[Rfam]
RNA: Small Cajal body-specific RNA 7
RNA sequence: UGGAAGUGAUGAAGUAGAGAUAAUCGGAUGUCUCUUUGAAUGGAGUGUGUGUGAUAAAUAGAAUUUAAACAUAUGCGGGGUGGGGGUGGGGAGCGUGUGCGUGUGCGCAUGUAUAGAAAAGACUUUAAAUGGGGGCACUGAUAAUGCAGUGCUGAUUCCGGAGUGCAUCUGAGGCAUGUUGUUAAGUUCUGGGGUGCCACUUUACAACAUUGCCGAUGAUUAAAGCCCAAAACAAGCCCACCAAGACAAGCCCAGGCAUCCUACAUCUCUAACAGGUUCAUUAAUGAAAGUGAUCCUGUGAUCUGAUCCGA
Numbered sequence: 001u002g003g004a005a006g007u008g009a010u011g012a013a014g015u016a017g018a019g020a021u022a023a024u025c026g027g028a029u030g031u032c033u034c035u036u037u038g039a040a041u042g043g044a045g046u047g048u049g050u051g052u053g054a055u056a057a058a059u060a061g062a063a064u065u066u067a068a069a070c071a072u073a074u075g076c077g078g079g080g081u082g083g084g085g086g087u088g089g090g091g092a093g094c095g096u097g098u099g100c101g102u103g104u105g106c107g108c109a110u111g112u113a114u115a116g117a118a119a120a121g122a123c124u125u126u127a128a129a130u131g132g133g134g135g136c137a138c139u140g141a142u143a144a145u146g147c148a149g150u151g152c153u154g155a156u157u158c159c160g161g162a163g164u165g166c167a168u169c170u171g172a173g174g175c176a177u178g179u180u181g182u183u184a185a186g187u188u189c190u191g192g193g194g195u196g197c198c199a200c201u202u203u204a205c206a207a208c209a210u211u212g213c214c215g216a217u218g219a220u221u222a223a224a225g226c227c228c229a230a231a232a233c234a235a236g237c238c239c240a241c242c243a244a245g246a247c248a249a250g251c252c253c254a255g256g257c258a259u260c261c262u263a264c265a266u267c268u269c270u271a272a273c274a275g276g277u278u279c280a281u282u283a284a285u286g287a288a289a290g291u292g293a294u295c296c297u298g299u300g301a302u303c304u305g306a307u308c309c310g311a
Stems, first nucleotide, its partner, number of pairs: 001310004177209006184202001186197002189194001